RNA sequence: CGUUUCUGCUAGGGGUGCCUAUUUAAGGCUGAGAUUAAAGAGUUCUUUAAGACCCUUGGAACCUGAUCUGGUUUAUACCAGCGGAGGGAAGUGGAAAGUCGCCGAU
Dot-bracket structure: .....(((((((((.(((((.....))))......(((((....))))))..)))).....(((...((((......))))...)))..)))))............